Annotation:
This 123-nucleotide RNA belongs to the Rfam family "skipping-rope RNA". The base pairs follow the family's consensus structure, which is taken from published work. The family's RNA type in Rfam is small RNA.

[Rfam]
RNA sequence: GCAGGUUGAGGAUAGAACGGGCAGCUAUCACCCCUGCCAAGAGUUGAUCGUACUGUAGAGUUCUAUGAGAACUACAGUCCAGGGCUUGGAAAGAGAUGCGGGGGUGCCGACCCGCCAACCUGC
Numbered sequence: 001g002c003a004g005g006u007u008g009a010g011g012a013u014a015g016a017a018c019g020g021g022c023a024g025c026u027a028u029c030a031c032c033c034c035u036g037c038c039a040a041g042a043g044u045u046g047a048u049c050g051u052a053c054u055g056u057a058g059a060g061u062u063c064u065a066u067g068a069g070a071a072c073u074a075c076a077g078u079c080c081a082g083g084g085c086u087u088g089g090a091a092a093g094a095g096a097u098g099c100g101g102g103g104g105u106g107c108c109g110a111c112c113c114g115c116c117a118a119c120c121u122g123c
Base pairs, nucleotide, nucleotide: 001123002122003121004120005119006118007117008116011029012028013027014026015025020108021107022106023105031093032084033083034082035081098115099114100113101112102111